[Rfam]
Shown here is a 123-nucleotide RNA sequence from Caenorhabditis brenneri, a member of the family "Caenorhabditis snoRNA ceN48".
For this family Rfam cites "Systematic identification of non-coding RNA 2,2,7-trimethylguanosine cap structures in Caenorhabditis elegans" (Jia et al., BMC Mol Biol, 2007).
It is one of the family's seed sequences.
RNA sequence: CCGCACACAGAAAGUCGAGGAGGCCUGACAAAGGCUUUUUCGUUGAUUACGUGUGCUAUAACAAUGCCAUAGGUAUCAUUCUUCGUCUUCUUAGGCGCGGAACAUCUAAAUAUGGCUACAAAC
Dot-bracket structure: ..((((((.......(((((.((((.......)))).)))))........)))))).........((((((..((...((((.(((((....))))).))))....))..)))))).......